[Rfam]
The family of this 101-nucleotide RNA sequence from Paenibacillus monticola is "c-di-GMP-I-GGC riboswitch aptamer".
Taxonomically the source falls in Paenibacillus (Bacteria, Bacillati, Bacilli, Paenibacillaceae).
It scores 65 bits against the family's covariance model.
RNA sequence: UGUGACAAAGGCAAACUUGUCGAAAGACAAGGACGCAAAGCCAUAGGGCCUUCUUCGUUUCCAAAUUGCGGAAGACGAAGGUGGCAGCCGUGCUGCCGGAA
Numbered sequence: 001u002g003u004g005a006c007a008a009a010g011g012c013a014a015a016c017u018u019g020u021c022g023a024a025a026g027a028c029a030a031g032g033a034c035g036c037a038a039a040g041c042c043a044u045a046g047g048g049c050c051u052u053c054u055u056c057g058u059u060u061c062c063a064a065a066u067u068g069c070g071g072a073a074g075a076c077g078a079a080g081g082u083g084g085c086a087g088c089c090g091u092g093c094u095g096c097c098g099g100a101a
Stems, first nucleotide, its partner, number of pairs: 001101001003098002011036002016031006034087001039094003044090001046089002048085003